[Rfam]
RNA sequence: AAUCCGGCGCCGCCCCGUGCCCCGGGGCCAGGCCGGAACCGGGGAACCACGUUCUCGGGGUGAAUCGGCGAGCGCGGUCCCCGCCCGAGCAACCAGCCCGGCGCGUGCGGCCGCUUUGCCGUAGGGCGUUACUUCCUUGGCCCGAACCCGUCAGCUAACCCGGUAGGCGGCCGAGGAAGGAAGG
Dot-bracket structure: ..((((((.......................))))))((((((....(........)(((.....(((((((..........................................)))))))..((((............))))...))).........))))))....................